[Rfam]
RNA: Actinobacteria sRNA Ms_IGR-5
Organism: Streptomyces sp. ISL-10
RNA sequence: ACACGCGAAAGGAGGUGAUCCGAAAAAAUGGUUUCUUUUCGGACUCGUGAGGUGACUGCGGGCUAACGGCCUGCCGUCGCACUCUGUGCACCUCGGCAGGCCACCUGCCGAAACCCAAGCAGUCACCCGACCCGUGGGCCGCCGGUGAGUCCGGCCGGCUCCCUCCGUCCGGACGGAGGGACCAAGGCCCACGGGUCGUCUGCG
Numbered sequence: 001a002c003a004c005g006c007g008a009a010a011g012g013a014g015g016u017g018a019u020c021c022g023a024a025a026a027a028a029u030g031g032u033u034u035c036u037u038u039u040c041g042g043a044c045u046c047g048u049g050a051g052g053u054g055a056c057u058g059c060g061g062g063c064u065a066a067c068g069g070c071c072u073g074c075c076g077u078c079g080c081a082c083u084c085u086g087u088g089c090a091c092c093u094c095g096g097c098a099g100g101c102c103a104c105c106u107g108c109c110g111a112a113a114c115c116c117a118a119g120c121a122g123u124c125a126c127c128c129g130a131c132c133c134g135u136g137g138g139c140c141g142c143c144g145g146u147g148a149g150u151c152c153g154g155c156c157g158g159c160u161c162c163c164u165c166c167g168u169c170c171g172g173a174c175g176g177a178g179g180g181a182c183c184a185a186g187g188c189c190c191a192c193g194g195g196u197c198g199u200c201u202g203c204g
Base pairs, nucleotide, nucleotide: 015059016058017057019055062109064107065106069101070100071099072098074096075095076094128198129197130196131195132194133193134192135191136190137189138188139187140186141159142158143157144156145155146154